[Rfam]
RNA sequence: CCUUCCGAGGAGCGUUGCGACGGAAUUUCUUCCGCCAGGCUCGGAAUCUCACCGGGGAUCGCCGACGCGGCCCCGUUCUGAACGGCGCUCACGUCUU
Numbered sequence: 001c002c003u004u005c006c007g008a009g010g011a012g013c014g015u016u017g018c019g020a021c022g023g024a025a026u027u028u029c030u031u032c033c034g035c036c037a038g039g040c041u042c043g044g045a046a047u048c049u050c051a052c053c054g055g056g057g058a059u060c061g062c063c064g065a066c067g068c069g070g071c072c073c074c075g076u077u078c079u080g081a082a083c084g085g086c087g088c089u090c091a092c093g094u095c096u097u
Base pairs, nucleotide, nucleotide: 003046004045005044006043007042008041021034022033023032024031025030